[Rfam]
Description
The record is a 600-nucleotide part of an RNA from Sulfolobus acidocaldarius, which matches "Archaeal small subunit ribosomal RNA" in Rfam. Gene Ontology terms of the family: ribosome and structural constituent of ribosome. The family has 86 seed sequences and 709 matches in Rfam 15.1. The family is grouped with related families in Rfam's "SSU clan". The family's consensus secondary structure is taken from published work.

RNA sequence: UGGCGGGGGAGCACCACAAGGGGUGGAACCUGCGGCUCAAUUGGAGUCAACGCCUGGAAUCUUACCGGGGGAGACCGCAGUAUGACGGCCAGGCUAACGACCUUGCCUGACUCGCGGAGAGGAGGUGCAUGGCCGUCGCCAGCUCGUGUUGUGAAAUGUCCGGUUAAGUCCGGCAACGAGCGAGACCCCCACCCCUAGUUGGUAUUCUGGACUCCGGUCCAGAACCACACUAGGGGGACUGCCGGCGUAAGCCGGAGGAAGGAGGGGGCCACGGCAGGUCAGCAUGCCCCGAAACUCCCGGGCCGCACGCGGGUUACAAUGGCAGGGACAACGGGAUGCUACCUCGAAAGGGGGAGCCAAUCCUUAAACCCUGCCGCAGUUGGGAUCGAGGGCUGAAACCCGCCCUCGUGAACGAGGAAUCCCUAGUAACCGCGGGUCAACAACCCGCGGUGAAUACGUCCCUGCUCCUUGCACACACCGCCCGUCGCUCCACCCGAGCGAGAAAGGGGUGAGGUCCCUUGCGAUAAGUGGGGGAUCGAACUCCUUUCCCGCGAGGGGGGAGAAGUCGUAACAAGGUAGCCGUAGGGGAACCUGCGGCUG
Numbered sequence: 001u002g003g004c005g006g007g008g009g010a011g012c013a014c015c016a017c018a019a020g021g022g023g024u025g026g027a028a029c030c031u032g033c034g035g036c037u038c039a040a041u042u043g044g045a046g047u048c049a050a051c052g053c054c055u056g057g058a059a060u061c062u063u064a065c066c067g068g069g070g071g072a073g074a075c076c077g078c079a080g081u082a083u084g085a086c087g088g089c090c091a092g093g094c095u096a097a098c099g100a101c102c103u104u105g106c107c108u109g110a111c112u113c114g115c116g117g118a119g120a121g122g123a124g125g126u127g128c129a130u131g132g133c134c135g136u137c138g139c140c141a142g143c144u145c146g147u148g149u150u151g152u153g154a155a156a157u158g159u160c161c162g163g164u165u166a167a168g169u170c171c172g173g174c175a176a177c178g179a180g181c182g183a184g185a186c187c188c189c190c191a192c193c194c195c196u197a198g199u200u201g202g203u204a205u206u207c208u209g210g211a212c213u214c215c216g217g218u219c220c221a222g223a224a225c226c227a228c229a230c231u232a233g234g235g236g237g238a239c240u241g242c243c244g245g246c247g248u249a250a251g252c253c254g255g256a257g258g259a260a261g262g263a264g265g266g267g268g269c270c271a272c273g274g275c276a277g278g279u280c281a282g283c284a285u286g287c288c289c290c291g292a293a294a295c296u297c298c299c300g301g302g303c304c305g306c307a308c309g310c311g312g313g314u315u316a317c318a319a320u321g322g323c324a325g326g327g328a329c330a331a332c333g334g335g336a337u338g339c340u341a342c343c344u345c346g347a348a349a350g351g352g353g354g355a356g357c358c359a360a361u362c363c364u365u366a367a368a369c370c371c372u373g374c375c376g377c378a379g380u381u382g383g384g385a386u387c388g389a390g391g392g393c394u395g396a397a398a399c400c401c402g403c404c405c406u407c408g409u410g411a412a413c414g415a416g417g418a419a420u421c422c423c424u425a426g427u428a429a430c431c432g433c434g435g436g437u438c439a440a441c442a443a444c445c446c447g448c449g450g451u452g453a454a455u456a457c458g459u460c461c462c463u464g465c466u467c468c469u470u471g472c473a474c475a476c477a478c479c480g481c482c483c484g485u486c487g488c489u490c491c492a493c494c495c496g497a498g499c500g501a502g503a504a505a506g507g508g509g510u511g512a513g514g515u516c517c518c519u520u521g522c523g524a525u526a527a528g529u530g531g532g533g534g535a536u537c538g539a540a541c542u543c544c545u546u547u548c549c550c551g552c553g554a555g556g557g558g559g560g561a562g563a564a565g566u567c568g569u570a571a572c573a574a575g576g577u578a579g580c581c582g583u584a585g586g587g588g589a590a591c592c593u594g595c596g597g598c599u600g
Base pairs, nucleotide, nucleotide: 001475002474003472004471005470007469008468009467010466011465012464013463016459017458020423021422022421023420024419025317027315028314029313030312031311032310033309034308035306036305041056043054044053065301066300067299068298069297070296071295075117076116077115078114079112080111087107088106089105091103092102093101121290122289124288125287126286127285130284131283132279133278134277135275136274137273138272142181143180144179145178146177147176148157149156150155160173161172162171163170187267188266189265190264192236193235194234195233196232197231198230202225203224206223207222208221209220210219211218212217239258240257242255243254244253245252246251321375322374323373324372325371326370327369333364334363335362338357339356342353343352344351345350382413387408388407389406390405391404392403393402429451430450431449432448433447434446435445436444478575480572483568484567486565488562489561490560491559493557494556495555498552499551500550502548503547504546505545506544507543508542509541510540513537514536515535516534517533518532519531520530521529522528577600578599579598580597581596582595583594584593585592586591